[Rfam]
RNA sequence: CGGCAACAUCAAGAGUUGGGGGCAACCCCGACGCCAACCUGCCGGCAACCGGGCAAGGUGGCGCCUUUCAGCGAUGAAAGGGAUGUGGCCGCAGCGGCAACCAAACGGAGCCAA
Numbered sequence: 001c002g003g004c005a006a007c008a009u010c011a012a013g014a015g016u017u018g019g020g021g022g023c024a025a026c027c028c029c030g031a032c033g034c035c036a037a038c039c040u041g042c043c044g045g046c047a048a049c050c051g052g053g054c055a056a057g058g059u060g061g062c063g064c065c066u067u068u069c070a071g072c073g074a075u076g077a078a079a080g081g082g083a084u085g086u087g088g089c090c091g092c093a094g095c096g097g098c099a100a101c102c103a104a105a106c107g108g109a110g111c112c113a114a
Stems, first nucleotide, its partner, number of pairs: 006086005015032001017031001018029004033062003038058003041054003049108002088098004